[Rfam]
RNA sequence: GGAGUAGUACUCAAGUGGCUGAAGAGGCGCCCCUGCUAAGGGUGUAGGUCGGGUUAUUCCGGCGCGAGGGUUCGAAUCUCUCCUACUCCG
Numbered sequence: 001g002g003a004g005u006a007g008u009a010c011u012c013a014a015g016u017g018g019c020u021g022a023a024g025a026g027g028c029g030c031c032c033c034u035g036c037u038a039a040g041g042g043u044g045u046a047g048g049u050c051g052g053g054u055u056a057u058u059c060c061g062g063c064g065c066g067a068g069g070g071u072u073c074g075a076a077u078c079u080c081u082c083c084u085a086c087u088c089c090g
Stems, first nucleotide, its partner, number of pairs: 001089007010026003028044005066082005